Notes: The record is a 51-nucleotide sequence from Pasteurella multocida, which matches "L31-Gammaproteobacteria ribosomal protein leader" in Rfam. Clan: Ribosomal Protein L31 Leader clan. It is one of the family's seed sequences. NCBI's taxonomy places the organism under Bacteria, Gammaproteobacteria, Pasteurellaceae, Pasteurella, Pasteurella multocida subsp. multocida. Rfam classes the family as a cis-regulatory leader.
RNA sequence: CACGCGGUGUCAGUCUUUGAACUCGAUAGCGGCGUGGCUUCAAAUCGAGGU
Numbered sequence: 001c002a003c004g005c006g007g008u009g010u011c012a013g014u015c016u017u018u019g020a021a022c023u024c025g026a027u028a029g030c031g032g033c034g035u036g037g038c039u040u041c042a043a044a045u046c047g048a049g050g051u
Stems, first nucleotide, its partner, number of pairs: 001036005007030002011025001012023003015019001